Annotation
A member of the RNA family "Ribosomal protein L19 leader" from Lederbergia citrea, 43 nucleotides long. By type it is a cis-regulatory leader. Pairs were carried over by alignment from the consensus structure, which was predicted with CMfinder. The literature on the family includes a 1994 paper in Prog Nucleic Acid Res Mol Biol by Zengel and Lindahl, "Diverse mechanisms for regulating ribosomal protein synthesis in Escherichia coli". This family is a putative r-protein leader autoregulatory structure found in B. subtilis and other low-GC Gram-positive bacteria. It is located in the 5' untranslated regions of mRNAs encoding ribosomal protein L19 (rplS).
[Rfam]
Nucleotides: 043
Stems, first nucleotide, its partner, number of pairs: 003041007013033004
Number, partner (000 for none) and nucleotide at each position: 001000a002000c003041g004040g005039u006038g007037u008036u009035c010000c011000g012000c013033u014032g015031c016030a017000u018000u019000u020000g021000c022000u023000u024000g025000u026000a027000g028000u029000u030016u031015g032014c033013a034000a035009g036008a037007g038006c039005a040004u041003c042000g043000g